ALIL pseudoknot: a 117-nucleotide RNA from Nitrosomonas communis. Pairs were carried over by alignment from the consensus structure, which is taken from published work. By type it is a cis-regulatory element.
RNA sequence: AGCAUAUUUCGCCCAGCCGGAGCUCGACCGUCGACCGAAGUGAUGGUGAUAUUUGUUGAUCAGCAUAAAGAACAAUACGGGGUCGAGCCGAUCUGCGAGCAAAUUCAGAUUGCCCUG
Numbered sequence: 001a002g003c004a005u006a007u008u009u010c011g012c013c014c015a016g017c018c019g020g021a022g023c024u025c026g027a028c029c030g031u032c033g034a035c036c037g038a039a040g041u042g043a044u045g046g047u048g049a050u051a052u053u054u055g056u057u058g059a060u061c062a063g064c065a066u067a068a069a070g071a072a073c074a075a076u077a078c079g080g081g082g083u084c085g086a087g088c089c090g091a092u093c094u095g096c097g098a099g100c101a102a103a104u105u106c107a108g109a110u111u112g113c114c115c116u117g
Base pairs, nucleotide, nucleotide: 016032018030019029020028078117079116080115081114082113089112090111092109093108094107095106097104